[Rfam]
Rfam assigns this 89-nucleotide sequence from Neorhizobium sp. SOG26 to the family "Glycine riboswitch aptamer".
The match comes from Rfam's covariance-model search (69 bits).
Lineage of the source: Bacteria > Pseudomonadati > Alphaproteobacteria > Rhizobiaceae > Neorhizobium.
RNA sequence: AGACAGCGAGUGGGAGAGAGUCGCCGUAGGCGGCCGCCGAAGGAGCAACCGCCCCGGAAACUCUCAGGCACAUGGACCGUUCGCUGGAG
Numbered sequence: 001a002g003a004c005a006g007c008g009a010g011u012g013g014g015a016g017a018g019a020g021u022c023g024c025c026g027u028a029g030g031c032g033g034c035c036g037c038c039g040a041a042g043g044a045g046c047a048a049c050c051g052c053c054c055c056g057g058a059a060a061c062u063c064u065c066a067g068g069c070a071c072a073u074g075g076a077c078c079g080u081u082c083g084c085u086g087g088a089g
Stems, first nucleotide, its partner, number of pairs: 006084008020034004036069003039065002043063003049057002